[Rfam]
RNA sequence: UACUCAUAAUGAAAUAGAUUCCGUAUAUGCUUAGGAAUUGGCUUAAGUGUUUCUACCGGGCAACCGUAAUUGCCCGACUACGGAGGGAAAGUGUACCUAG
Dot-bracket structure: ..................(((((((...(((((((......)))))))........(((((((......)))))))..)))))))...............
Shown here is a 100-nucleotide RNA from Desulforamulus reducens, a member of the family "Purine riboswitch aptamer".